[Rfam]
RNA sequence: AAAUACGAUAGAGGCGCGGGGUUUAUCAGUAAUCUCUCAGAGCAAGACCAUGCAGUGAAGGGAGAUGAAAGGAAAUUUCGCCGAAGUGUAUUAUUGGUAACAGAUAAUAUGCUGGGCAUGCAAACAAUAUUUGCAUGACUGUCACGAUUUAGUGGGGAGCUAUCUAAGGU
Dot-bracket structure: ......(((((....(((((((((.......(((((((.....................)))))))......)))))))))...(((((((((((.......)))))))))))((.((((((((.....)))))))).)).((((......))))....)))))......
Numbered sequence: 001a002a003a004u005a006c007g008a009u010a011g012a013g014g015c016g017c018g019g020g021g022u023u024u025a026u027c028a029g030u031a032a033u034c035u036c037u038c039a040g041a042g043c044a045a046g047a048c049c050a051u052g053c054a055g056u057g058a059a060g061g062g063a064g065a066u067g068a069a070a071g072g073a074a075a076u077u078u079c080g081c082c083g084a085a086g087u088g089u090a091u092u093a094u095u096g097g098u099a100a101c102a103g104a105u106a107a108u109a110u111g112c113u114g115g116g117c118a119u120g121c122a123a124a125c126a127a128u129a130u131u132u133g134c135a136u137g138a139c140u141g142u143c144a145c146g147a148u149u150u151a152g153u154g155g156g157g158a159g160c161u162a163u164c165u166a167a168g169g170u
Stems, first nucleotide, its partner, number of pairs: 007164005016081009032066007085113011114140002117137008142155004
The family of this 170-nucleotide RNA from Peptoniphilus harei is "Lysine riboswitch aptamer". The organism belongs to Peptoniphilus harei, within Bacteria. It scores 117 bits against the family's covariance model. Rfam describes the family as follows. Riboswitches are metabolite binding domains within certain messenger RNAs that serve as precision sensors for their corresponding targets. Allosteric rearrangement of mRNA structure is mediated by ligand binding, and this results in modulation of gene expression. This family includes riboswitches that sense lysine in a number of genes involved in lysine metabolism, including lysC.